[Rfam]
A member of the RNA family "SAH (S-adenosyl-L-homocysteine) riboswitch aptamer" from Streptosporangium saharense, 77 nucleotides long. A search with the family's covariance model found it, with a score of 41 bits. The source organism's lineage runs through Bacteria, Bacillati, Actinomycetes, Streptosporangiales and Streptosporangium.
Nucleotides: 077
Base pairs, nucleotide, nucleotide: 002047003046004045005044006043007042008041021034022033023032024031025030
Number, partner (000 for none) and nucleotide at each position: 001000c002047a003046g004045g005044u006043c007042g008041a009000g010000a011000g012000g013000c014000g015000c016000u017000g018000c019000a020000a021034c022033g023032g024031g025030c026000u027000c028000c029000u030025g031024c032023c033022c034021g035000c036000c037000a038000c039000g040000c041008u042007c043006g044005g045004c046003c047002u048000g049000c050000a051000c052000c053000a054000c055000u056000c057000g058000a059000a060000c061000a062000a063000g064000g065000g066000c067000g068000c069000c070000u071000c072000c073000c074000a075000u076000c077000g